Notes
A member of the RNA family "Small nucleolar RNA SNORD10" from Mola mola, 140 nucleotides long. Lineage of the source: Eukaryota > Eurypterygia > Ctenosquamata > Tetraodontiformes > Mola. The base pairs follow the family's consensus structure, which was predicted with WAR. The family's RNA type in Rfam is C/D-box small nucleolar RNA.
RNA sequence: UGUAUAAUGAUGAAACCCAUGCGUGUCAGCUGAUUCUGUAAACCUUUGUUGUAGUGCUGAUCAGGUUAGCGUUUUGCAAGCUUGAAUCAGUAGUGCAGCAGUGGUGCAGAGGCAUGAUCAGAGCUCACUUUCUGAAUACA
Number, nucleotide and partner (000 for none) at each position: 001u140002g139003u138004a137005u000006a000007a000008u000009g000010a000011u000012g000013a000014a000015a000016c000017c000018c000019a000020u000021g000022c000023g000024u000025g000026u000027c000028a000029g000030c000031u000032g000033a000034u000035u000036c000037u000038g000039u000040a000041a000042a000043c000044c103045u000046u101047u100048g099049u098050u097051g096052u095053a000054g000055u000056g000057c000058u000059g000060a000061u000062c000063a000064g000065g000066u000067u000068a000069g000070c000071g000072u000073u000074u000075u000076g000077c000078a000079a000080g000081c000082u000083u000084g000085a000086a000087u000088c000089a000090g000091u000092a000093g000094u000095g052096c051097a050098g049099c048100a047101g046102u000103g044104g000105u000106g000107c000108a000109g000110a000111g000112g000113c000114a000115u000116g000117a000118u000119c000120a000121g000122a000123g000124c000125u000126c000127a000128c000129u000130u000131u000132c000133u000134g000135a000136a000137u004138a003139c002140a001